Rfam assigns this 99-nucleotide RNA sequence from Gelria sp. Kuro-4 to the family "Glycine riboswitch aptamer". From the family's description: This family represents the bacterial glycine riboswitch.
RNA sequence: AUGAACUGCGGGGGAGAGUCCGCAAGGCGCCGAAGGAGCAAGGCCGGUAGCGCUACUUACCCGGCUGAACCUCUCAGGUACAAGUACCUCGCAGGGAAG
Numbered sequence: 001a002u003g004a005a006c007u008g009c010g011g012g013g014g015a016g017a018g019u020c021c022g023c024a025a026g027g028c029g030c031c032g033a034a035g036g037a038g039c040a041a042g043g044c045c046g047g048u049a050g051c052g053c054u055a056c057u058u059a060c061c062c063g064g065c066u067g068a069a070c071c072u073c074u075c076a077g078g079u080a081c082a083a084g085u086a087c088c089u090c091g092c093a094g095g096g097a098a099g
Stems, first nucleotide, its partner, number of pairs: 006094008020027002029079003032075002036073003042066006